[Rfam]
RNA sequence: UCUUACUGAUGAGUUUUAACUUUGUCCGUGUUGCUGAGAGCAGUGAUUGUACUAGAAGUUCUGAGAGG
Numbered sequence: 001u002c003u004u005a006c007u008g009a010u011g012a013g014u015u016u017u018a019a020c021u022u023u024g025u026c027c028g029u030g031u032u033g034c035u036g037a038g039a040g041c042a043g044u045g046a047u048u049g050u051a052c053u054a055g056a057a058g059u060u061c062u063g064a065g066a067g068g
Base pairs, nucleotide, nucleotide: 001068002067003066004065

Overview:
A member of the RNA family "Small nucleolar RNA SNORD18" from Esox lucius, 68 nucleotides long. A reference for the family is Prislei et al. (1993), "Two different snoRNAs are encoded in introns of amphibian and human L1 ribosomal protein genes", Nucleic Acids Res. NCBI's taxonomy places the organism under Eukaryota, Actinopteri, Osteoglossocephalai, Protacanthopterygii, Esox. It scores 42 bits against the family's covariance model. It is annotated as a C/D-box small nucleolar RNA.